[Rfam]
RNA sequence: GCCGGCGUAGCCCAACGGCAGAGGCACGGUCUUUAGGUGGCCGCCAGUGCGGGUUCGAAUCCCGCCGCCGGCA
Numbered sequence: 001g002c003c004g005g006c007g008u009a010g011c012c013c014a015a016c017g018g019c020a021g022a023g024g025c026a027c028g029g030u031c032u033u034u035a036g037g038u039g040g041c042c043g044c045c046a047g048u049g050c051g052g053g054u055u056c057g058a059a060u061c062c063c064g065c066c067g068c069c070g071g072c073a
Base pairs, nucleotide, nucleotide: 001072002071003070004069005068006067007066010025011024012023027043028042029041030040031039049065050064051063052062053061

The family of this 73-nucleotide RNA is "tRNA".
It is annotated as a transfer RNA.
The base pairs follow the family's consensus structure, which is taken from published work.
Its family is annotated with triplet codon-amino acid adaptor activity in the Gene Ontology.